[Rfam]
RNA sequence: AGCAAGGAGUAAACAAACCAAAAAAGAGUGAACCGGCGGCGCAAAAUGCGCGGCCGGCAAGC
Numbered sequence: 001a002g003c004a005a006g007g008a009g010u011a012a013a014c015a016a017a018c019c020a021a022a023a024a025a026g027a028g029u030g031a032a033c034c035g036g037c038g039g040c041g042c043a044a045a046a047u048g049c050g051c052g053g054c055c056g057g058c059a060a061g062c
Base pairs, nucleotide, nucleotide: 033057034056035055036054037053039051040050041049042048
Rfam assigns this 62-nucleotide sequence from Paramixta manurensis to the family "DnaX ribosomal frameshifting element". NCBI's taxonomy places the organism under Bacteria, Pseudomonadati, Enterobacterales, Erwiniaceae, Paramixta. For this family Rfam cites "Structural probing and mutagenic analysis of the stem-loop required for Escherichia coli dnaX ribosomal frameshifting: programmed efficiency of 50%" (Larsen et al., J Mol Biol, 1997). The family's consensus secondary structure is taken from published work. It is annotated as a frameshift element.